[Rfam]
RNA sequence: GGUCAGUGAUACGAUGGCAUGUGUUACCUGAACCCAAAAUUGAUGUGAAUUCCAAAAUUACAGAGGUCUU
Numbered sequence: 001g002g003u004c005a006g007u008g009a010u011a012c013g014a015u016g017g018c019a020u021g022u023g024u025u026a027c028c029u030g031a032a033c034c035c036a037a038a039a040u041u042g043a044u045g046u047g048a049a050u051u052c053c054a055a056a057a058u059u060a061c062a063g064a065g066g067u068c069u070u
Stems, first nucleotide, its partner, number of pairs: 001068004
RNA: Small nucleolar RNA SNORD45